Shown here is a 196-nucleotide RNA from Wenjunlia tyrosinilytica, a member of the family "c-di-AMP riboswitch aptamer (ydaO/yuaA leader)".
RNA sequence: CCUGUCGGCACGCCGAAUCCUGUCCCCGGCCGCGCGGGAAACGACGACCGUCACGGGCAGGAGUGGGGGACCCACAGGUAAGUGCCGUCCCCGGUGCCGCACGCAUCGGGACGGCUUGGGGUGAAGCCGCGUCAGCGGCCGGGCAACUCCAGCCCGAACCCGACAGCUCACCUCGCAGGCGUAGGAGAGGAACAAC
Numbered sequence: 001c002c003u004g005u006c007g008g009c010a011c012g013c014c015g016a017a018u019c020c021u022g023u024c025c026c027c028g029g030c031c032g033c034g035c036g037g038g039a040a041a042c043g044a045c046g047a048c049c050g051u052c053a054c055g056g057g058c059a060g061g062a063g064u065g066g067g068g069g070a071c072c073c074a075c076a077g078g079u080a081a082g083u084g085c086c087g088u089c090c091c092c093g094g095u096g097c098c099g100c101a102c103g104c105a106u107c108g109g110g111a112c113g114g115c116u117u118g119g120g121g122u123g124a125a126g127c128c129g130c131g132u133c134a135g136c137g138g139c140c141g142g143g144c145a146a147c148u149c150c151a152g153c154c155c156g157a158a159c160c161c162g163a164c165a166g167c168u169c170a171c172c173u174c175g176c177a178g179g180c181g182u183a184g185g186a187g188a189g190g191a192a193c194a195a196c
Stems, first nucleotide, its partner, number of pairs: 011181004018062008063176006073118002119161003127138004141155004
This family represents a conserved RNA structure found upstream of the ydaO and yuaA genes in Bacillus subtilis and related genes in other bacteria. The ydaO/yuaA element is thought to act as a genetic 'off' switch for the ydaO and yuaA genes in its native state. It is believed that the element may be triggered during osmotic shock leading to activation of ydaO, a predicted amino acid transporter gene, and members of the yuaA-yubG operon which code for KtrA and KtrB K+ transporters.